[Rfam]
RNA sequence: AGGCAGCCCCUCUGCAACUUUCAAUGGCAAAGGUGGCGUUAAACUGCUCGUAGAUCGAAUCGCUUUUGCUCUUCAGACUUGCUGAGAUUUCCUUUGAAGCUGGUCUAGUAAGCAUCAGUACAUA
Numbered sequence: 001a002g003g004c005a006g007c008c009c010c011u012c013u014g015c016a017a018c019u020u021u022c023a024a025u026g027g028c029a030a031a032g033g034u035g036g037c038g039u040u041a042a043a044c045u046g047c048u049c050g051u052a053g054a055u056c057g058a059a060u061c062g063c064u065u066u067u068g069c070u071c072u073u074c075a076g077a078c079u080u081g082c083u084g085a086g087a088u089u090u091c092c093u094u095u096g097a098a099g100c101u102g103g104u105c106u107a108g109u110a111a112g113c114a115u116c117a118g119u120a121c122a123u124a
Stems, first nucleotide, its partner, number of pairs: 002040003007036002009033003013029003017025001063118002068113003075106005081100003086092001

The record is a 124-nucleotide sequence from Cucurbita maxima, which matches "Small nucleolar RNA snoR77" in Rfam. Taxonomically the source falls in Cucurbita (Eukaryota, Embryophyta, Mesangiospermae, Cucurbiteae). The literature on the family includes a 2002 paper in Curr Biol by Marker et al., "Experimental RNomics: identification of 140 candidates for small non-messenger RNAs in the plant Arabidopsis thaliana". The match comes from Rfam's covariance-model search (100 bits). Pairs were carried over by alignment from the consensus structure, which was predicted with WAR.